[Rfam]
Rfam assigns this 72-nucleotide RNA from Rhodobacteraceae bacterium HIMB11 to the family "Singlet oxygen resistance RNA X". The source organism's lineage runs through Bacteria, Pseudomonadati, Pseudomonadota, Alphaproteobacteria and Paracoccaceae. By type it is a small RNA. A reference for the family is Peng et al. (2016), "Regulation of a polyamine transporter by the conserved 3' UTR-derived sRNA SorX confers resistance to singlet oxygen and organic hydroperoxides in Rhodobacter sphaeroides", RNA Biol. From the family's description: SorX (RSs2461)like SorY is a singlet oxygen induced sRNA that counteracts oxidative stress by targeting mRNA for a transporter in Rhodobacter. It also has an impact on resistance against organic hydroperoxides. It targets SD sequence of potA mRNA via an aSD sequence. The aSD sequence and some neighbouring nucleotides are identical to the one of SorY (targets takP mRNA). Pairs were carried over by alignment from the consensus structure. Its family is annotated with response to photooxidative stress in the Gene Ontology.
RNA sequence: AUCCCGUGCAUAUCCGGGCAUAGAUAUGCUUCCUCCCUGUUGGACUGACCCGAGCUUUGCUCGGAUCUUUUU
Dot-bracket structure: .......(((((((........)))))))..................(.((((((...)))))).)......